[Rfam]
RNA sequence: CCAGCCGAGCCUCUUUACAAUGCUUAAAUAGGCUGGG
Numbered sequence: 001c002c003a004g005c006c007g008a009g010c011c012u013c014u015u016u017a018c019a020a021u022g023c024u025u026a027a028a029u030a031g032g033c034u035g036g037g
Base pairs, nucleotide, nucleotide: 001036002035003034004033005032006031008024009023010022
Annotation:
This 37-nucleotide RNA sequence belongs to the Rfam family "abiF RNA". It is one of the family's seed sequences. Rfam 15.1 lists 282 matches to the family in 274 species. The family's RNA type in Rfam is small RNA. Pairs were carried over by alignment from the consensus structure, which is taken from published work. Rfam's curators write: Actinobacteria, Bacteroidetes, Clostridia, Proteobacteria, one Clostridia phage.